[Rfam]
Nucleotides: 096
Stems, first nucleotide, its partner, number of pairs: 002095006
Number, partner (000 for none) and nucleotide at each position: 001000u002095u003094u004093g005092g006091a007090u008000c009000u010000g011000u012000g013000a014000u015000g016000u017000u018000a019000u020000u021000u022000u023000u024000u025000a026000a027000c028000u029000g030000c031000g032000u033000u034000a035000u036000c037000u038000u039000c040000c041000u042000g043000a044000a045000a046000c047000u048000c049000c050000c051000a052000a053000u054000c055000a056000g057000g058000g059000g060000a061000a062000g063000u064000u065000c066000a067000a068000a069000g070000a071000u072000g073000a074000g075000a076000a077000a078000u079000u080000g081000c082000c083000u084000a085000u086000u087000g088000a089000g090007a091006u092005c093004c094003a095002g096000u
Shown here is a 96-nucleotide sequence from Kingdonia uniflora, a member of the family "Small nucleolar RNA snoR27". The family's consensus secondary structure was predicted with WAR. Its family is annotated with nucleolus and RNA processing in the Gene Ontology.